The family of this 72-nucleotide RNA sequence from Esox lucius is "mir-153 microRNA precursor family". A reference for the family is Tesfaye et al. (2009), "Identification and expression profiling of microRNAs during bovine oocyte maturation using heterologous approach", Mol Reprod Dev. The organism belongs to Esox, within Eukaryota.

RNA sequence: GUCUGUGUCAUCUUUGUGAUCUGCAGCUAGUUGUCUGGGUCCAGUUGCAUAGUCACAAAAAUGACCAUGGAC
Numbered sequence: 001g002u003c004u005g006u007g008u009c010a011u012c013u014u015u016g017u018g019a020u021c022u023g024c025a026g027c028u029a030g031u032u033g034u035c036u037g038g039g040u041c042c043a044g045u046u047g048c049a050u051a052g053u054c055a056c057a058a059a060a061a062u063g064a065c066c067a068u069g070g071a072c
Base pairs, nucleotide, nucleotide: 002071003070004069005068006067007066008064009063010062011061013059014058015057016056017055018054019053020052022049023048024047025046026045027044028043